[Rfam]
RNA: FMN riboswitch aptamer (RFN element)
RNA sequence: ACGAGUUCUCAGGGCAGGGUGUAAUUCCCUACUGGCGGUCAAGCCCGCGAGCGUUCAUAUAUAUGAAGUCAGCAGAUUUGGUGAAAUUCCAAAGCCAACAGUAAAAGUCUGGAUGAAAGAGAAUUAAC
Numbered sequence: 001a002c003g004a005g006u007u008c009u010c011a012g013g014g015c016a017g018g019g020u021g022u023a024a025u026u027c028c029c030u031a032c033u034g035g036c037g038g039u040c041a042a043g044c045c046c047g048c049g050a051g052c053g054u055u056c057a058u059a060u061a062u063a064u065g066a067a068g069u070c071a072g073c074a075g076a077u078u079u080g081g082u083g084a085a086a087u088u089c090c091a092a093a094g095c096c097a098a099c100a101g102u103a104a105a106a107g108u109c110u111g112g113a114u115g116a117a118a119g120a121g122a123a124u125u126a127a128c
Base pairs, nucleotide, nucleotide: 004125005124006123007122008121009120010119017029018028019027031108032107033097034096035048036047037046038045043095044094051073052072077093078092079091080090081089099111100110101109